[Rfam]
RNA sequence: UCAACAUUGACACAGCAGUGGGUGAGACUUCCUGGUCUUACUUGCUUGUCUUGUGUCUUGUGUGGCAAGAAGGAACUGAAUAUCCUACUUGUAGGAUUUGAGGUUUGGUCCUCUUCCACAAUGUUGUACAGUAAUGGAACCUCCCAGAUGCUCUUGCUGGAUGUUGGAUCCAUCCCUGCAUAUUCCAUAACCUUCUCUUAGUCCUUGUGGGACUCUGACAGAGGAGAUAAACCAUGCAGUGGACAGUA
Numbered sequence: 001u002c003a004a005c006a007u008u009g010a011c012a013c014a015g016c017a018g019u020g021g022g023u024g025a026g027a028c029u030u031c032c033u034g035g036u037c038u039u040a041c042u043u044g045c046u047u048g049u050c051u052u053g054u055g056u057c058u059u060g061u062g063u064g065g066c067a068a069g070a071a072g073g074a075a076c077u078g079a080a081u082a083u084c085c086u087a088c089u090u091g092u093a094g095g096a097u098u099u100g101a102g103g104u105u106u107g108g109u110c111c112u113c114u115u116c117c118a119c120a121a122u123g124u125u126g127u128a129c130a131g132u133a134a135u136g137g138a139a140c141c142u143c144c145c146a147g148a149u150g151c152u153c154u155u156g157c158u159g160g161a162u163g164u165u166g167g168a169u170c171c172a173u174c175c176c177u178g179c180a181u182a183u184u185c186c187a188u189a190a191c192c193u194u195c196u197c198u199u200a201g202u203c204c205u206u207g208u209g210g211g212a213c214u215c216u217g218a219c220a221g222a223g224g225a226g227a228u229a230a231a232c233c234a235u236g237c238a239g240u241g242g243a244c245a246g247u248a
Stems, first nucleotide, its partner, number of pairs: 002126006009057004015049003019044011062119004071112004075106001079098003176239006192226006201213004